[Rfam]
RNA sequence: UGCAGAGUAGGCAUGUGCGCGUUAAGUGUCGGUCAGACAGGGAGUUGCUGGCGGAACGAAAGUGGGCUUUGGCCCCUGCGGUGCAUGUGCCGCAUCCCGCUGCU
Numbered sequence: 001u002g003c004a005g006a007g008u009a010g011g012c013a014u015g016u017g018c019g020c021g022u023u024a025a026g027u028g029u030c031g032g033u034c035a036g037a038c039a040g041g042g043a044g045u046u047g048c049u050g051g052c053g054g055a056a057c058g059a060a061a062g063u064g065g066g067c068u069u070u071g072g073c074c075c076c077u078g079c080g081g082u083g084c085a086u087g088u089g090c091c092g093c094a095u096c097c098c099g100c101u102g103c104u
Stems, first nucleotide, its partner, number of pairs: 002103004010091010020080003026057002029055002032052005040097003044093001061077002064074001
THF (Tetrahydrofolate) riboswitch aptamer: a 104-nucleotide sequence from Eubacteriaceae bacterium Marseille-Q4139. The match comes from Rfam's covariance-model search (81 bits). Rfam describes the family as follows. Tetrahydrofolate (THF) riboswitch was first reported for Ames et al. as an RNA motif in 5' untranslated (5'-UTR)regions of folate transport and biosynthesis genes in Firmicutes genomes. The organism belongs to Eubacteriaceae, within Bacteria. For this family Rfam cites "A eubacterial riboswitch class that senses the coenzyme tetrahydrofolate" (Ames et al., Chem Biol, 2010).